[Rfam]
RNA: Bacterial large signal recognition particle RNA
Organism: Clostridium oryzae
RNA sequence: CCGUGCUAGAUGGGGAGUUAGCGGUGCCCUGUAACCUGCAAUCCGCUGUAGCAGGGUUGAAUUCCUCAUUGAGGCUUUAAACCUGUAGGAUCUGGCUUGUGUAAGUGGUGUUGAUAAUUGGGUCCCACGCAACGAAAAUCUAUGAACCCCGUCAGGUCCGGAAGGAAGCAGCGGUAAGUAGACAAUUUCGUGUGCCGUGGAAUAGCCUGAUUUGAGCUAACUGCACAAGUAACGCUUAUAGGUUUUUAGACGAUUUGAGGUGCACGG
Numbered sequence: 001c002c003g004u005g006c007u008a009g010a011u012g013g014g015g016a017g018u019u020a021g022c023g024g025u026g027c028c029c030u031g032u033a034a035c036c037u038g039c040a041a042u043c044c045g046c047u048g049u050a051g052c053a054g055g056g057u058u059g060a061a062u063u064c065c066u067c068a069u070u071g072a073g074g075c076u077u078u079a080a081a082c083c084u085g086u087a088g089g090a091u092c093u094g095g096c097u098u099g100u101g102u103a104a105g106u107g108g109u110g111u112u113g114a115u116a117a118u119u120g121g122g123u124c125c126c127a128c129g130c131a132a133c134g135a136a137a138a139u140c141u142a143u144g145a146a147c148c149c150c151g152u153c154a155g156g157u158c159c160g161g162a163a164g165g166a167a168g169c170a171g172c173g174g175u176a177a178g179u180a181g182a183c184a185a186u187u188u189c190g191u192g193u194g195c196c197g198u199g200g201a202a203u204a205g206c207c208u209g210a211u212u213u214g215a216g217c218u219a220a221c222u223g224c225a226c227a228a229g230u231a232a233c234g235c236u237u238a239u240a241g242g243u244u245u246u247u248a249g250a251c252g253a254u255u256u257g258a259g260g261u262g263c264a265c266g267g
Base pairs, nucleotide, nucleotide: 001267002266003265004264005263006262009058010057011056012030013029014028015027017025018024019023035055036054037053038052039051064260065259066258067257068256073251075249076248080244081243082242083241084240085239086238087237088236089235093231094230097228098227099226100225101224102223105221106220107218108217109216116212117211118210119209120208121207122206123205125200126199127198128197129196130192131191133190134189135188136187137186139182140181141180142179143178149174150173151172152171157166158165159164